[Rfam]
RNA sequence: CUGAUAUCUCAGCUUAGAGAACUGAAAUCCAUGGACUGUGCAGACUCUCUUGGUCCGUGGGGCUCAGUUCUGUAGCUUGGAUGGUCAAA
Numbered sequence: 001c002u003g004a005u006a007u008c009u010c011a012g013c014u015u016a017g018a019g020a021a022c023u024g025a026a027a028u029c030c031a032u033g034g035a036c037u038g039u040g041c042a043g044a045c046u047c048u049c050u051u052g053g054u055c056c057g058u059g060g061g062g063c064u065c066a067g068u069u070c071u072g073u074a075g076c077u078u079g080g081a082u083g084g085u086c087a088a089a
Stems, first nucleotide, its partner, number of pairs: 008080002011077003018071008033056004